[Rfam]
RNA: Bacterial RNase P class A
Organism: Naumannella halotolerans
RNA sequence: CGAGUCGGCCAGAUGAUCGCGGUGCUCGCACCGAGGAAAGUCCGGACUCCGCAGAGCAGGGUGGUGGGUAACACCCACCCGGGGCGACCCGCGGGACAGUGCCACAGAGAACAGACCGCCCUCCUCGUGGGGGCAAGGGUGAAACGGCGGUGUAAGAGACCACCGGCACCCCGGGUGACCGGGGUGGCCAGGCAAACCCCACCCGGAGCAAGACCAGACAGGCUGCGUCAGAGGGCUGCUCGCCCGAGCAGCCGGGUAGGUUGCACCAGGCGACUGGCAACAGUCGUCGCAGAUGGAUGAUCAUCCUUCGACAGAAUCCGGCUUACCGGCCGGCUCGUCCU
Numbered sequence: 001c002g003a004g005u006c007g008g009c010c011a012g013a014u015g016a017u018c019g020c021g022g023u024g025c026u027c028g029c030a031c032c033g034a035g036g037a038a039a040g041u042c043c044g045g046a047c048u049c050c051g052c053a054g055a056g057c058a059g060g061g062u063g064g065u066g067g068g069u070a071a072c073a074c075c076c077a078c079c080c081g082g083g084g085c086g087a088c089c090c091g092c093g094g095g096a097c098a099g100u101g102c103c104a105c106a107g108a109g110a111a112c113a114g115a116c117c118g119c120c121c122u123c124c125u126c127g128u129g130g131g132g133g134c135a136a137g138g139g140u141g142a143a144a145c146g147g148c149g150g151u152g153u154a155a156g157a158g159a160c161c162a163c164c165g166g167c168a169c170c171c172c173g174g175g176u177g178a179c180c181g182g183g184g185u186g187g188c189c190a191g192g193c194a195a196a197c198c199c200c201a202c203c204c205g206g207a208g209c210a211a212g213a214c215c216a217g218a219c220a221g222g223c224u225g226c227g228u229c230a231g232a233g234g235g236c237u238g239c240u241c242g243c244c245c246g247a248g249c250a251g252c253c254g255g256g257u258a259g260g261u262u263g264c265a266c267c268a269g270g271c272g273a274c275u276g277g278c279a280a281c282a283g284u285c286g287u288c289g290c291a292g293a294u295g296g297a298u299g300a301u302c303a304u305c306c307u308u309c310g311a312c313a314g315a316a317u318c319c320g321g322c323u324u325a326c327c328g329g330c331c332g333g334c335u336c337g338u339c340c341u
Stems, first nucleotide, its partner, number of pairs: 001337010012305007020033005038324003042321005047208004054241004059204005064078005079093001080091004094199002099197002101193003116138002118134006146164002149161003166188001167186008212262004221253006233245004269288008